[Rfam]
RNA sequence: CGCGGUCUUCGGUAGUGGCUGCCGGAUGUACUCCGGCCGCUUCGAUCGACGGCCGUC
Numbered sequence: 001c002g003c004g005g006u007c008u009u010c011g012g013u014a015g016u017g018g019c020u021g022c023c024g025g026a027u028g029u030a031c032u033c034c035g036g037c038c039g040c041u042u043c044g045a046u047c048g049a050c051g052g053c054c055g056u057c
Stems, first nucleotide, its partner, number of pairs: 002056006009049005017041003021037006